RNA: Plastid-ccsA-ndhD-1 3UTR RNA
RNA sequence: GCGAGAACCGUGUGAAUCACUAUACUACUUGAUUCACACGGUUCUCGC
Numbered sequence: 001g002c003g004a005g006a007a008c009c010g011u012g013u014g015a016a017u018c019a020c021u022a023u024a025c026u027a028c029u030u031g032a033u034u035c036a037c038a039c040g041g042u043u044c045u046c047g048c
Base pairs, nucleotide, nucleotide: 001048002047003046004045005044006043007042008041009040010039011038012037013036014035015034016033017032018031019030
Dot-bracket structure: (((((((((((((((((((..........)))))))))))))))))))